[Rfam]
RNA sequence: AGUGUUGCAGUUUCGGUUUGUGACCGACACUAACGGGUAUUUCUUUUAUAUUGAGUAAGCCACUUUACUCGUUUUUGCGAUCACAAAUUCUGAAAUUGCAACAA
Numbered sequence: 001a002g003u004g005u006u007g008c009a010g011u012u013u014c015g016g017u018u019u020g021u022g023a024c025c026g027a028c029a030c031u032a033a034c035g036g037g038u039a040u041u042u043c044u045u046u047u048a049u050a051u052u053g054a055g056u057a058a059g060c061c062a063c064u065u066u067a068c069u070c071g072u073u074u075u076u077g078c079g080a081u082c083a084c085a086a087a088u089u090c091u092g093a094a095a096u097u098g099c100a101a102c103a104a
Stems, first nucleotide, its partner, number of pairs: 003103008013093003017087007025079002028077002032073008
Rfam assigns this 104-nucleotide sequence from Drosophila busckii to the family "mir-274 microRNA precursor family". Gene Ontology terms of the family: RISC complex and miRNA-mediated post-transcriptional gene silencing. A search with the family's covariance model found it, with a score of 96 bits. The base pairs follow the family's consensus structure, which was predicted with RNAalifold. The literature on the family includes a 2007 paper in Genome Res by Ruby et al., "Evolution, biogenesis, expression, and target predictions of a substantially expanded set of Drosophila microRNAs".